[Rfam]
RNA sequence: UUGCUUGCAGGACGGGAAGGUGUCAACGUUUUGUUUUAUAAAUAAACAUUGCACUUGUCCCGGCCUAUGAGCGG
Numbered sequence: 001u002u003g004c005u006u007g008c009a010g011g012a013c014g015g016g017a018a019g020g021u022g023u024c025a026a027c028g029u030u031u032u033g034u035u036u037u038a039u040a041a042a043u044a045a046a047c048a049u050u051g052c053a054c055u056u057g058u059c060c061c062g063g064c065c066u067a068u069g070a071g072c073g074g
Base pairs, nucleotide, nucleotide: 001074002073003072004071005070006069007068010065011064013062014061016059017058019055020054022052024051025050026049028047029046030045
Shown here is a 74-nucleotide RNA sequence from Drosophila albomicans, a member of the family "mir-310 microRNA precursor family". The match comes from Rfam's covariance-model search (49 bits). Taxonomically the source falls in Drosophila (Eukaryota, Arthropoda, Altocrustacea, Eumetabola). Pairs were carried over by alignment from the consensus structure, which was predicted with RNAalifold. The family is grouped with related families in Rfam's "mir-92 microRNA precursor clan".